[Rfam]
RNA sequence: AGGCAAGGAAACUCGGCUAAAGGCCCUCACAUCCUGUGAGGAACGCCCAGUACCUUCGUCCUGAAGG
Number, nucleotide and partner (000 for none) at each position: 001a000002g000003g000004c000005a000006a000007g000008g000009a000010a000011a051012c050013u049014c000015g047016g046017c045018u000019a000020a000021a000022g000023g000024c000025c000026c040027u039028c038029a037030c036031a000032u000033c000034c000035u000036g030037u029038g028039a027040g026041g000042a000043a000044c000045g017046c016047c015048c000049a013050g012051u011052a000053c067054c066055u065056u064057c063058g000059u000060c000061c000062u000063g057064a056065a055066g054067g053